Shown here is a 130-nucleotide RNA from Todus mexicanus, a member of the family "Small nucleolar RNA SNORD22". The organism belongs to Todus, within Eukaryota.
RNA sequence: CCCCCAUGAGGAAACCCCCCCACGUCUGAUCCCCCCCCCAGCACCAGAACCUGCGAAGGUUGAACCCACUGGUGAUACUGGGAGGGAGGAGCACGAGGACGCCCAGUCCAGAUGGGACUGUCUGAGGGGG
Dot-bracket structure: ((((.........................................................................................................................)))).
The family has 49 seed sequences and 1,081 matches in Rfam 15.1.
Rfam classes the family as a C/D-box small nucleolar RNA.
On this family, see Tycowski et al., Nature 1996: "A mammalian gene with introns instead of exons generating stable RNA products".